[Rfam]
Nucleotides: 526
Base pairs, nucleotide, nucleotide: 001464002463003462004461005460006459011024013022014021015020027173028172029171030170031169032168033167042123044119045118046117047116048115049114054109055107056106061103062102063101066098068096069095070094073093074092075091076090077089078088080086125155126154127153128152129148130147131146132145133144179203180202181201182200184198185197186196187195188194208219209218210217223413224412225411226410227409229407233403234402235401242400249388250387251386272366273365274364276363277362278361279360280359281358282357283356284355285354293350294349295348296347297346299323300322301321304318305317306316324328329344333342334341414454415453416452417451419449421448422447423446466521468518469517470516471515472514473513474512477509484505485503490499491498492497
Number, partner (000 for none) and nucleotide at each position: 001464c002463a003462c004461a005460u006459c007000g008000a009000a010000g011024u012000u013022u014021c015020c016000c017000u018000c019000a020015g021014g022013a023000u024011a025000g026000c027173u028172g029171g030170u031169g032168c033167u034000a035000g036000u037000a038000g039000a040000a041000g042123u043000a044119u045118u046117g047116u048115g049114c050000g051000g052000u053000a054109a055107a056106g057000c058000a059000a060000a061103u062102g063101a064000u065000u066098a067000g068096a069095g070094g071000c072000a073093u074092u075091g076090g077089u078088g079000u080086u081000c082000u083000u084000a085000g086080a087000a088078u089077a090076u091075c092074g093073a094070c095069c096068u097000a098066u099000u100000c101063u102062c103061a104000a105000a106056c107055u108000u109054u110000a111000a112000a113000u114049g115048u116047g117046c118045a119044a120000a121000c122000a123042a124000a125155c126154u127153g128152u129148g130147c131146c132145u133144u134000a135000g136000c137000u138000c139000a140000u141000u142000g143000c144133a145132a146131g147130g148129c149000c150000a151000g152128a153127c154126a155125g156000a157000c158000a159000a160000a161000a162000a163000u164000u165000a166000a167033g168032g169031c170030a171029c172028c173027a174000a175000g176000u177000g178000g179203g180202c181201c182200u183000u184198c185197u186196u187195c188194g189000g190000u191000a192000a193000g194188c195187g196186g197185a198184g199000c200182a201181g202180g203179c204000g205000a206000u207000g208219c209218g210217g211000a212000a213000u214000g215000a216000a217210c218209c219208g220000c221000u222000u223413a224412g225411g226410g227409a228000u229407a230000u231000g232000u233403g234402g235401c236000g237000u238000c239000a240000a241000a242400a243000c244000u245000u246000a247000u248000g249388g250387g251386c252000u253000c254000a255000u256000u257000c258000u259000c260000g261000a262000u263000a264000c265000g266000u267000g268000a269000a270000a271000a272366g273365g274364g275000u276363g277362u278361u279360g280359g281358u282357g283356g284355a285354u286000a287000u288000g289000g290000a291000c292000a293350g294349u295348u296347g297346g298000a299323c300322g301321g302000u303000g304318g305317c306316c307000a308000u309000g310000g311000a312000a313000g314000u315000c316306g317305g318304c319000a320000u321301c322300c323299g324328c325000u326000a327000a328324g329344g330000a331000g332000u333342g334341u335000g336000u337000a338000a339000c340000a341334a342333c343000u344329c345000a346297c347296c348295a349294a350293c351000c352000g353000a354285a355284u356283c357282c358281a359280c360279c361278g362277g363276c364274c365273c366272c367000g368000a369000a370000a371000a372000u373000g374000g375000a376000u377000g378000a379000c380000g381000c382000u383000u384000a385000a386251g387250c388249c389000c390000a391000a392000u393000u394000a395000g396000u397000g398000a399000u400242u401235g402234c403233c404000c405000a406000u407229u408000a409227u410226u411225c412224c413223u414454u415453u416452g417451g418000u419449a420000a421448g422447g423446g424000c425000g426000g427000a428000a429000a430000c431000a432000u433000u434000g435000a436000g437000a438000a439000a440000g441000u442000g443000u444000a445000g446423c447422c448421c449419u450000u451417c452416c453415g454414a455000u456000g457000u458000a459006g460005a461004u462003g463002u464001g465000g466521c467000c468518u469517g470516g471515g472514g473513g474512u475000a476000a477509g478000g479000a480000c481000g482000a483000a484505g485503c486000u487000g488000a489000u490499g491498g492497c493000g494000c495000g496000a497492g498491c499490c500000u501000c502000a503485g504000a505484u506000g507000g508000a509477c510000c511000a512474g513473c514472c515471u516470c517469u518468a519000g520000u521466g522000c523000a524000g525000a526000u
A member of the RNA family "Eukaryotic large subunit ribosomal RNA" from Bodo saltans, 526 nucleotides of a longer RNA.